The record is a 91-nucleotide RNA sequence from Nyctereutes procyonoides, which matches "mir-8799 microRNA precursor family" in Rfam.
Nucleotides: 091
Stems, first nucleotide, its partner, number of pairs: 002090005009083002012079002016077001019074001021072001023070002026068001027065002030063001031060006040053001042052003
Number, partner (000 for none) and nucleotide at each position: 001000u002090g003089g004088g005087g006086g007000a008000g009083g010082c011000c012079g013078g014000a015000u016077c017000c018000u019074g020000g021072g022000c023070u024069g025000u026068g027065u028064c029000c030063c031060c032059g033058g034057c035056g036055c037000c038000c039000u040053g041000u042052g043051c044050u045000c046000c047000c048000c049000u050044g051043g052042c053040c054000u055036g056035c057034g058033c059032u060031g061000u062000u063030g064028g065027a066000u067000u068026c069024c070023g071000c072021u073000a074019u075000c076000a077016g078013c079012c080000a081000c082010g083009c084000a085000g086006c087005c088004c089003c090002u091000c
The family is grouped with related families in Rfam's "mir-8791 microRNA precursor clan".